[Rfam]
RNA sequence: GGUCACGAGUGACAGCGACACGGCCCCGGCCCGCUGUCCGGCAACCCUCCUUCUGCGGCGGGGUGCCCCGGGUGAUGACCAGGUCGCAGGCACAGAGGUCUGCGGCAAGCGCGGAUC
Numbered sequence: 001g002g003u004c005a006c007g008a009g010u011g012a013c014a015g016c017g018a019c020a021c022g023g024c025c026c027c028g029g030c031c032c033g034c035u036g037u038c039c040g041g042c043a044a045c046c047c048u049c050c051u052u053c054u055g056c057g058g059c060g061g062g063g064u065g066c067c068c069c070g071g072g073u074g075a076u077g078a079c080c081a082g083g084u085c086g087c088a089g090g091c092a093c094a095g096a097g098g099u100c101u102g103c104g105g106c107a108a109g110c111g112c113g114g115a116u117c
Stems, first nucleotide, its partner, number of pairs: 001080004009039001011038006022031002040067003045063003049058002083106009
Rfam assigns this 117-nucleotide sequence from Streptomyces albireticuli to the family "SAM (S-adenosyl methionine) riboswitch aptamer". The literature on the family includes a 2008 paper in RNA by Weinberg et al., "The aptamer core of SAM-IV riboswitches mimics the ligand-binding site of SAM-I riboswitches". Its Rfam clan is "SAM clan".